[Rfam]
RNA sequence: CUGUCUCUUGUUUCAACAGUGUUUGGACAGAGAAG
Number, nucleotide and partner (000 for none) at each position: 001c035002u034003g000004u032005c000006u031007c030008u029009u000010g028011u000012u027013u026014c025015a024016a023017c021018a000019g000020u000021g017022u000023u016024u015025g014026g013027a012028c010029a008030g007031a006032g004033a000034a002035g001